Rfam assigns this 171-nucleotide RNA sequence from Tursiops truncatus to the family "TUC338". The family's RNA type in Rfam is cis-regulatory element. Taxonomically the source falls in Tursiops (Eukaryota, Bilateria, Tetrapoda, Cetacea). It is one of the family's seed sequences.
[Rfam]
RNA sequence: UUGAAGGCGUGGAGACUGAAGUCCUCUCUAUAUCCACAGAACAGGUAUGGCACAGGCAGCGGCAGUGCAGCUUUUCCGCUGUCCCACCAAUGUGCCUCAGUCCUAGCCAAGAGGGACCAUGUUGAGGGUAAGAGGGCUAUCAGUCUCCAUGCCCUUCAAUCUUUGGCUACU
Numbered sequence: 001u002u003g004a005a006g007g008c009g010u011g012g013a014g015a016c017u018g019a020a021g022u023c024c025u026c027u028c029u030a031u032a033u034c035c036a037c038a039g040a041a042c043a044g045g046u047a048u049g050g051c052a053c054a055g056g057c058a059g060c061g062g063c064a065g066u067g068c069a070g071c072u073u074u075u076c077c078g079c080u081g082u083c084c085c086a087c088c089a090a091u092g093u094g095c096c097u098c099a100g101u102c103c104u105a106g107c108c109a110a111g112a113g114g115g116a117c118c119a120u121g122u123u124g125a126g127g128g129u130a131a132g133a134g135g136g137c138u139a140u141c142a143g144u145c146u147c148c149a150u151g152c153c154c155u156u157c158a159a160u161c162u163u164u165g166g167c168u169a170c171u
Stems, first nucleotide, its partner, number of pairs: 002158003006153002010149010023135005029130003033127002038104002041101001047097001050095005061083005108124003112120001